This 123-nucleotide RNA from Treponema maltophilum belongs to the Rfam family "TD-1 RNA". The source organism's lineage runs through Bacteria, Spirochaetota, Spirochaetia, Treponemataceae and Treponema maltophilum. A reference for the family is Weinberg et al. (2007), "Identification of 22 candidate structured RNAs in bacteria using the CMfinder comparative genomics pipeline", Nucleic Acids Res. The match comes from Rfam's covariance-model search (68 bits). The base pairs follow the family's consensus structure, which is taken from published work.

[Rfam]
RNA sequence: CUUUUUAUGCCGUGUUUGCGUUGCAAACACGCUUAUUUAUUGCGCUUUCUCAACUGACGUUUGCGAAAGCGCUGAAAAAAGUUUUAUCGGAAACCGAUGUUUCCUCAAAAACUUUUUAUGGAG
Dot-bracket structure: ...........((((((((...))))))))...........((((((((...............))))))))...((((((((((...((((((....))))))...))))))))))......